[Rfam]
RNA sequence: CAUCCUUUAUGAAAGCAGGCGCAGAAACUAUGCUCUAGUGGCGUCUGCUCGAAGUCAGGCAGG
Numbered sequence: 001c002a003u004c005c006u007u008u009a010u011g012a013a014a015g016c017a018g019g020c021g022c023a024g025a026a027a028c029u030a031u032g033c034u035c036u037a038g039u040g041g042c043g044u045c046u047g048c049u050c051g052a053a054g055u056c057a058g059g060c061a062g063g
Base pairs, nucleotide, nucleotide: 001063003061005059014049015048016047017046018045019044020043021042022041028038029037030036

Selenocysteine insertion sequence 1: a 63-nucleotide sequence from Sparus aurata.
Rfam links the family to the GO term selenocysteine incorporation.
Pairs were carried over by alignment from the consensus structure, which is taken from published work.
NCBI's taxonomy places the organism under Eukaryota, Metazoa, Spariformes, Sparidae, Sparus.
By type it is a cis-regulatory element.